RNA sequence: UAGAAAGUAACUCCUUUGUGAGUGAUUUUAGAAUUAGCAUAGAGAAAACAUUUUUGCGAGUGAAUUUCUCUAUGCUUUUAUUAUAUCA
Numbered sequence: 001u002a003g004a005a006a007g008u009a010a011c012u013c014c015u016u017u018g019u020g021a022g023u024g025a026u027u028u029u030a031g032a033a034u035u036a037g038c039a040u041a042g043a044g045a046a047a048a049c050a051u052u053u054u055u056g057c058g059a060g061u062g063a064a065u066u067u068c069u070c071u072a073u074g075c076u077u078u079u080a081u082u083a084u085a086u087c088a
Base pairs, nucleotide, nucleotide: 004029005028006027007026008025010023011022012021013020036076037075038074039073040072041071042070043069044068045067046066047065
RNA: ctRNA
Organism: Lactococcus lactis